[Rfam]
RNA sequence: ACCUAUGGUAGAGGUGCUAUUUUUAAAUAGUAGUCACUAGGAGCUGGCAAGCAAUGAUGAGUGGUGAAAGGUAUUAAUAGCCGAAGAUUAGAAUUAUGCUAAGAUUCUUUUCUGGGCAUGCAUAAAAUAUAUGUAUGACUGUCACUUUAGUGGAGAGCUACAAGGAUU
Dot-bracket structure: .....(.((((....((((((..(........((((((.(.................).)))))).......)..))))))...(((..((((((.......))))))..)))((.((((((((.....)))))))).)).((((....))))....)))).).....

Shown here is a 168-nucleotide sequence from Clostridium sp. SM-530-WT-3G, a member of the family "Lysine riboswitch aptamer". The match comes from Rfam's covariance-model search (102 bits). The organism belongs to Clostridium, within Bacteria.